RNA sequence: AACAUCGGCUAACAGCUGCUAAAUUAUUAGUAGAGGAAAGUCCACGCUAGCACAAUCUGCGAUGAUUGUAGUGUUCAUGCUGAUUCUAAUAAAAUCAGGCUUUGACGACUAGUGCCACAGAGACGAGAAUAGUGAAACGGGUAAACUCCAUGAGCUAGAAACCCAAAUUCUGGUAGGGGAACUUUCUGAUGAUAAAUGAAUCUAGGAAAGAAUCAAGAUUAUCUUGGUUAGAUAAAUUGUUAGCGCCAUAUUAAUUUAUGGAACAGAACGUGGCUUAUAGAU
Numbered sequence: 001a002a003c004a005u006c007g008g009c010u011a012a013c014a015g016c017u018g019c020u021a022a023a024u025u026a027u028u029a030g031u032a033g034a035g036g037a038a039a040g041u042c043c044a045c046g047c048u049a050g051c052a053c054a055a056u057c058u059g060c061g062a063u064g065a066u067u068g069u070a071g072u073g074u075u076c077a078u079g080c081u082g083a084u085u086c087u088a089a090u091a092a093a094a095u096c097a098g099g100c101u102u103u104g105a106c107g108a109c110u111a112g113u114g115c116c117a118c119a120g121a122g123a124c125g126a127g128a129a130u131a132g133u134g135a136a137a138c139g140g141g142u143a144a145a146c147u148c149c150a151u152g153a154g155c156u157a158g159a160a161a162c163c164c165a166a167a168u169u170c171u172g173g174u175a176g177g178g179g180a181a182c183u184u185u186c187u188g189a190u191g192a193u194a195a196a197u198g199a200a201u202c203u204a205g206g207a208a209a210g211a212a213u214c215a216a217g218a219u220u221a222u223c224u225u226g227g228u229u230a231g232a233u234a235a236a237u238u239g240u241u242a243g244c245g246c247c248a249u250a251u252u253a254a255u256u257u258a259u260g261g262a263a264c265a266g267a268a269c270g271u272g273g274c275u276u277a278u279a280g281a282u
Base pairs, nucleotide, nucleotide: 004282005281006280007278008244009243010242011241012240013239014238016033017032018031019030020029021028038276039275040274042273043272044271045270046269047158048157049156050155051154052069053068054067055066056065057064075153076152077151078150079149080098081097082096083095084094085093099106100104107148108147112146113145114142115141116140162178163177164176182210183209184208185207186206187205211229212228213227214226215225216224246261247260248259249258250257

A member of the RNA family "Bacterial RNase P class B" from Mycoplasmopsis agalactiae, 282 nucleotides long. Rfam describes the family as follows. Ribonuclease P (RNase P) is a ubiquitous endoribonuclease, found in archaea, bacteria and eukarya as well as chloroplasts and mitochondria. By type it is a ribozyme. Lineage of the source: Bacteria > Bacillati > Mycoplasmatota > Mycoplasmopsis > Mycoplasmopsis agalactiae.